[Rfam]
RNA: TPP riboswitch aptamer (THI element)
Organism: Paenibacillus dendrobii
RNA sequence: CAUAUGGAAUGCGGGAGCUUGAGUGAAUCAGGCUGAGAUUGCAGCUGUUGUCCGCUGCUGACCGGGUAUCUGAACUGGAUAAUGCCAGCGUAGAGAAUUCGUGAUAGUCCCCU
Dot-bracket structure: ......((((.(((.((((((.......))))).......((((..........)))))..)))....((((..((((......))))..))))..)))).............